[Rfam]
RNA: mir-2944 microRNA precursor family
Organism: Anopheles stephensi
RNA sequence: CGGGUGGCGAUCGAAGGAACUCCCGGUGUGAUAUGUUGGUAAAUCCGUACCAUAUCACAGCGGUAGUUACCUGAUAUUGCUGCCGG
Numbered sequence: 001c002g003g004g005u006g007g008c009g010a011u012c013g014a015a016g017g018a019a020c021u022c023c024c025g026g027u028g029u030g031a032u033a034u035g036u037u038g039g040u041a042a043a044u045c046c047g048u049a050c051c052a053u054a055u056c057a058c059a060g061c062g063g064u065a066g067u068u069a070c071c072u073g074a075u076a077u078u079g080c081u082g083c084c085g086g
Stems, first nucleotide, its partner, number of pairs: 003084009015072003018068004023063003027059009